RNA sequence: GGCGAUAAACGCCGUGUGGAAUAAGUGUUGCGGACCCGGGGGCAGUGCCCGGCGUCUCCACCAAUAUGCUCAGGCCCUUUAUCGGGGGCGGCGGAUGGGGACGACACAGGCUCGACGCGCACGGUAAAGACACGGUUUUUGCCCGGCAUUGUACCGCCGUUAUCGGGCUAAAUCACAAGUGCCAACGAUAACAGCCGUGAGGCUGUGGCGCUCGCUGCCUAA
Numbered sequence: 001g002g003c004g005a006u007a008a009a010c011g012c013c014g015u016g017u018g019g020a021a022u023a024a025g026u027g028u029u030g031c032g033g034a035c036c037c038g039g040g041g042g043c044a045g046u047g048c049c050c051g052g053c054g055u056c057u058c059c060a061c062c063a064a065u066a067u068g069c070u071c072a073g074g075c076c077c078u079u080u081a082u083c084g085g086g087g088g089c090g091g092c093g094g095a096u097g098g099g100g101a102c103g104a105c106a107c108a109g110g111c112u113c114g115a116c117g118c119g120c121a122c123g124g125u126a127a128a129g130a131c132a133c134g135g136u137u138u139u140u141g142c143c144c145g146g147c148a149u150u151g152u153a154c155c156g157c158c159g160u161u162a163u164c165g166g167g168c169u170a171a172a173u174c175a176c177a178a179g180u181g182c183c184a185a186c187g188a189u190a191a192c193a194g195c196c197g198u199g200a201g202g203c204u205g206u207g208g209c210g211c212u213c214g215c216u217g218c219c220u221a222a
Stems, first nucleotide, its partner, number of pairs: 001143005014133004026121003030118003036052005053103007144159004
RNA: permuted transfer-messenger RNA